[Rfam]
SAM riboswitch aptamer (S box leader): a 92-nucleotide RNA sequence from Hymenobacter sp. APR13.
RNA sequence: UUUUUAUACAGAGGCGUGGAGAGACAGGCUCGACGAAACGCCGGCAACCAGCGGACCUUCCGAAACGGUGCCAAGUCCUGACCAUAUAAAAA
Numbered sequence: 001u002u003u004u005u006a007u008a009c010a011g012a013g014g015c016g017u018g019g020a021g022a023g024a025c026a027g028g029c030u031c032g033a034c035g036a037a038a039c040g041c042c043g044g045c046a047a048c049c050a051g052c053g054g055a056c057c058u059u060c061c062g063a064a065a066c067g068g069u070g071c072c073a074a075g076u077c078c079u080g081a082c083c084a085u086a087u088a089a090a091a092a
Stems, first nucleotide, its partner, number of pairs: 001092008013042005021031003025080004043072004048068002052062002076084001